[Rfam]
RNA: U4atac minor spliceosomal RNA
RNA sequence: GUUGUCCUUGUCUUUGGGGAGCAAAGUAUUCAAUGAUCGUCUAGUGAGGGUACUGUUGCUAUAACCCAUUAAACAAUAUCCUGCAUCCACGAUAAACGUGAGAUGCAAUUUUUGAAAGC
Numbered sequence: 001g002u003u004g005u006c007c008u009u010g011u012c013u014u015u016g017g018g019g020a021g022c023a024a025a026g027u028a029u030u031c032a033a034u035g036a037u038c039g040u041c042u043a044g045u046g047a048g049g050g051u052a053c054u055g056u057u058g059c060u061a062u063a064a065c066c067c068a069u070u071a072a073a074c075a076a077u078a079u080c081c082u083g084c085a086u087c088c089a090c091g092a093u094a095a096a097c098g099u100g101a102g103a104u105g106c107a108a109u110u111u112u113u114g115a116a117a118g119c
Base pairs, nucleotide, nucleotide: 005019006018007017008016021059022058023057024056025054026053027052028051029050030049031048038044083106084105085104086103087102089099090098091097